A member of the RNA family "mir-8517 microRNA precursor family" from Plutella xylostella, 110 nucleotides long. The base pairs follow the family's consensus structure, which was predicted with RNAalifold. Rfam links the family to the GO terms RISC complex and miRNA-mediated post-transcriptional gene silencing. Lineage of the source: Eukaryota > Panorpida > Amphiesmenoptera > Yponomeutoidea > Plutella.

[Rfam]
RNA sequence: UUAUAGGACGCUUUAGCUUUUGAAUUGUUUUGUCCCUCACUGUAAAAGAACAAAUUGUUCUCUGUCAGAGAGUGACAGACAACAGUUCAAUUGCUAAAGCGUUCUAUAAC
Numbered sequence: 001u002u003a004u005a006g007g008a009c010g011c012u013u014u015a016g017c018u019u020u021u022g023a024a025u026u027g028u029u030u031u032g033u034c035c036c037u038c039a040c041u042g043u044a045a046a047a048g049a050a051c052a053a054a055u056u057g058u059u060c061u062c063u064g065u066c067a068g069a070g071a072g073u074g075a076c077a078g079a080c081a082a083c084a085g086u087u088c089a090a091u092u093g094c095u096a097a098a099g100c101g102u103u104c105u106a107u108a109a110c
Stems, first nucleotide, its partner, number of pairs: 001109006011099007020090009029069004034064001049059004